Shown here is an 88-nucleotide RNA sequence from Aureibacillus halotolerans, a member of the family "Glycine riboswitch aptamer".
The source organism's lineage runs through Bacteria, Bacilli, Caryophanales, Bacillaceae and Aureibacillus.
Rfam links the family to the GO term glycine biosynthetic process.
The pairing is the family consensus, mapped onto this sequence.
A search with the family's covariance model found it, with a score of 71 bits.
This family represents the bacterial glycine riboswitch.
[Rfam]
RNA sequence: AUGACAGCAAGGGGAGAGAUCGAAUUUAUUCGACGCCGAAGGAGCAAACUAACGUGAAUCUCUCAGGCAAAAAGACUCUUGUUGGACG
Numbered sequence: 001a002u003g004a005c006a007g008c009a010a011g012g013g014g015a016g017a018g019a020u021c022g023a024a025u026u027u028a029u030u031c032g033a034c035g036c037c038g039a040a041g042g043a044g045c046a047a048a049c050u051a052a053c054g055u056g057a058a059u060c061u062c063u064c065a066g067g068c069a070a071a072a073a074g075a076c077u078c079u080u081g082u083u084g085g086a087c088g
Stems, first nucleotide, its partner, number of pairs: 006083008020033004035068003038064002042062003048055002